[Rfam]
The family of this 103-nucleotide RNA sequence from Cytobacillus solani is "TPP riboswitch aptamer (THI element)". It scores 63 bits against the family's covariance model. About the family: Vitamin B(1) in its active form thiamin pyrophosphate (TPP) is an essential coenzyme that is synthesised by coupling of pyrimidine and thiazole moieties in bacteria.
RNA sequence: CGUAACCACAAGGGGAGCGUAAAGCUGAGAGUGAACAGUUCGCUGUUCUGACCCUUCGAACCUGUUAGAUAAUUCUAGCGCAGGAAUGUGGAUUGAAUAGGUG
Numbered sequence: 001c002g003u004a005a006c007c008a009c010a011a012g013g014g015g016a017g018c019g020u021a022a023a024g025c026u027g028a029g030a031g032u033g034a035a036c037a038g039u040u041c042g043c044u045g046u047u048c049u050g051a052c053c054c055u056u057c058g059a060a061c062c063u064g065u066u067a068g069a070u071a072a073u074u075c076u077a078g079c080g081c082a083g084g085a086a087u088g089u090g091g092a093u094u095g096a097a098u099a100g101g102u103g
Base pairs, nucleotide, nucleotide: 006091007090008089009088010087011055012054013053014052016049017025018024033048034047035046036045037044038043061084062083063082064081065078066077067076068075